[Rfam]
RNA sequence: CUUCCUCACCCUUACUCUGGGGGCUUUAUUUCAUCUAUGAAGCGCCCUGGUAUUGCCUGAGGACAGAUGAGAAAGCACACGACCUUCCCCAGUCACUCUGUUUUCUUCUGGGGCCUACACGUGGAGCUGACAGG
Numbered sequence: 001c002u003u004c005c006u007c008a009c010c011c012u013u014a015c016u017c018u019g020g021g022g023g024c025u026u027u028a029u030u031u032c033a034u035c036u037a038u039g040a041a042g043c044g045c046c047c048u049g050g051u052a053u054u055g056c057c058u059g060a061g062g063a064c065a066g067a068u069g070a071g072a073a074a075g076c077a078c079a080c081g082a083c084c085u086u087c088c089c090c091a092g093u094c095a096c097u098c099u100g101u102u103u104u105c106u107u108c109u110g111g112g113g114c115c116u117a118c119a120c121g122u123g124g125a126g127c128u129g130a131c132a133g134g
Stems, first nucleotide, its partner, number of pairs: 003063006011055001017050006023043005074128003078124001087113006095104001

Shown here is a 134-nucleotide RNA sequence from Microcebus murinus, a member of the family "Small nucleolar RNA SNORA49". Rfam describes the family as follows. The snoRNA ACA49 has no identified RNA target. NB genomic sequence 1-nt different from published. The family's consensus secondary structure was predicted with RNAalifold. Rfam 15.1 lists 722 matches to the family in 550 species. Its family is annotated with RNA processing and nucleolus in the Gene Ontology.